Shown here is a 79-nucleotide RNA sequence from Candidatus Brocadia fulgida, a member of the family "c-di-GMP-I-GGC riboswitch aptamer". Rfam 15.1 lists 1,298 matches to the family in 717 species.

[Rfam]
RNA sequence: UCUGAUAAAGGCAAACCUUGGGUAACCAAGGGACGCAAAGUAAAGGGUCUUAAUCAUAAAGACAGCCUUACUGCCGAAG
Numbered sequence: 001u002c003u004g005a006u007a008a009a010g011g012c013a014a015a016c017c018u019u020g021g022g023u024a025a026c027c028a029a030g031g032g033a034c035g036c037a038a039a040g041u042a043a044a045g046g047g048u049c050u051u052a053a054u055c056a057u058a059a060a061g062a063c064a065g066c067c068u069u070a071c072u073g074c075c076g077a078a079g
Stems, first nucleotide, its partner, number of pairs: 001079001003076002011036002016031006034065001039072004044068003047063003
The match comes from Rfam's covariance-model search (72 bits). On this family, see Weinberg et al., Proc Natl Acad Sci U S A 2017: "Bioinformatic analysis of riboswitch structures uncovers variant classes with altered ligand specificity".